Notes:
A member of the RNA family "Small nucleolar RNA SNORA79" from Scyliorhinus torazame, 142 nucleotides long. ACA65 (SNORA79) is a member of the H/ACA class of snoRNAs that guide the sites of modification of uridines to pseudouridines. This snoRNA was identified by computational screening and its expression in mouse experimentally verified by Northern blot and primer extension analysis. By type it is an H/ACA-box small nucleolar RNA. A search with the family's covariance model found it, with a score of 64 bits.
RNA sequence: CGAUGACAGUACCUCCUGCUGCCCAAGUUUUGCCUUCAUGGUUUUGUCCUAUCAGAGAUUAGAGAUGAAUUUCUUCACUCGGAGCGCGCUGGGUCAGCCGGAAUUGUCCAUCUGCGCUCUGAAUGUUGCGAGUCAGUCACAG
Dot-bracket structure: .((((..(.....((.((..(.(........).)..)).)).....)..)))).............((.((.......((((((((((...((.((........)).))...)))))))))).......)).))........
Numbered sequence: 001c002g003a004u005g006a007c008a009g010u011a012c013c014u015c016c017u018g019c020u021g022c023c024c025a026a027g028u029u030u031u032g033c034c035u036u037c038a039u040g041g042u043u044u045u046g047u048c049c050u051a052u053c054a055g056a057g058a059u060u061a062g063a064g065a066u067g068a069a070u071u072u073c074u075u076c077a078c079u080c081g082g083a084g085c086g087c088g089c090u091g092g093g094u095c096a097g098c099c100g101g102a103a104u105u106g107u108c109c110a111u112c113u114g115c116g117c118u119c120u121g122a123a124u125g126u127u128g129c130g131a132g133u134c135a136g137u138c139a140c141a142g
Stems, first nucleotide, its partner, number of pairs: 002053004008047001014041002017038002021034001023032001067134002070131002079122010092109002095106002